[Rfam]
RNA: Makes More Granules Regulator RNA (mmgR)
RNA sequence: GGAACCUGCCUUUCAGGCAUCCUCUCCUAAAACUUUCACGCCGCCCUUCGGGGCGGCUUUUUUUCGGAUAGC
Numbered sequence: 001g002g003a004a005c006c007u008g009c010c011u012u013u014c015a016g017g018c019a020u021c022c023u024c025u026c027c028u029a030a031a032a033c034u035u036u037c038a039c040g041c042c043g044c045c046c047u048u049c050g051g052g053g054c055g056g057c058u059u060u061u062u063u064u065c066g067g068a069u070a071g072c
Base pairs, nucleotide, nucleotide: 008018009017010016011015040057041056042055043054044053045052046051